Shown here is a 93-nucleotide sequence from Branchiostoma floridae, a member of the family "mir-2060 microRNA precursor family". NCBI's taxonomy places the organism under Eukaryota, Bilateria, Chordata, Amphioxiformes, Branchiostoma. The base pairs follow the family's consensus structure, which was predicted with RNAalifold. It scores 62 bits against the family's covariance model. The family has 7 seed sequences and 3,696 matches in Rfam 15.1.
[Rfam]
RNA sequence: GCUCGACUAUAAGUGAAUGGUGUUCAGACCCAAGGACAAGUUGUUUUUCUGUUUGUGGAUGGUAUUCAGCACCAAGGACAGACGUAUUCGCAU
Numbered sequence: 001g002c003u004c005g006a007c008u009a010u011a012a013g014u015g016a017a018u019g020g021u022g023u024u025c026a027g028a029c030c031c032a033a034g035g036a037c038a039a040g041u042u043g044u045u046u047u048u049c050u051g052u053u054u055g056u057g058g059a060u061g062g063u064a065u066u067c068a069g070c071a072c073c074a075a076g077g078a079c080a081g082a083c084g085u086a087u088u089c090g091c092a093u
Stems, first nucleotide, its partner, number of pairs: 004084002007081002010078001018074007026066002030062003034054001036052003040048001